[Rfam]
RNA: Small Cajal body-specific RNA 7
RNA sequence: UGGAAGUGAUGAAAUAGAGAUAAUCGGAUGUCUGUUUGAAUGGAGAGUGUGUGUGAUAAAUGGAAUUUAAUCCAAGUCAGGCUGGGGGUGGGGUGUGGGGAAUGUGUGUAUAUGCAUGUAUAGAAAAGGCUUUAAAUGGGGGCACUGAUAUUGCUGUGCUGAUUCCGGAGUGCAUCUGAGGCAUGUUGUUAAGUUUUGGGGUGCCAGUUCACAACACUGCCGAUGAUUAAAGCCCGAAGCAAGCCCACCAAGACAAGCCUAGGCAUCCUGAGUCUCUAACAGGUUCAUUAAUGAAAGUGAUCCUGUGAUCUGAUCUGA
Numbered sequence: 001u002g003g004a005a006g007u008g009a010u011g012a013a014a015u016a017g018a019g020a021u022a023a024u025c026g027g028a029u030g031u032c033u034g035u036u037u038g039a040a041u042g043g044a045g046a047g048u049g050u051g052u053g054u055g056a057u058a059a060a061u062g063g064a065a066u067u068u069a070a071u072c073c074a075a076g077u078c079a080g081g082c083u084g085g086g087g088g089u090g091g092g093g094u095g096u097g098g099g100g101a102a103u104g105u106g107u108g109u110a111u112a113u114g115c116a117u118g119u120a121u122a123g124a125a126a127a128g129g130c131u132u133u134a135a136a137u138g139g140g141g142g143c144a145c146u147g148a149u150a151u152u153g154c155u156g157u158g159c160u161g162a163u164u165c166c167g168g169a170g171u172g173c174a175u176c177u178g179a180g181g182c183a184u185g186u187u188g189u190u191a192a193g194u195u196u197u198g199g200g201g202u203g204c205c206a207g208u209u210c211a212c213a214a215c216a217c218u219g220c221c222g223a224u225g226a227u228u229a230a231a232g233c234c235c236g237a238a239g240c241a242a243g244c245c246c247a248c249c250a251a252g253a254c255a256a257g258c259c260u261a262g263g264c265a266u267c268c269u270g271a272g273u274c275u276c277u278a279a280c281a282g283g284u285u286c287a288u289u290a291a292u293g294a295a296a297g298u299g300a301u302c303c304u305g306u307g308a309u310c311u312g313a314u315c316u317g318a
Stems, first nucleotide, its partner, number of pairs: 001317004184216006191209001193204002196201001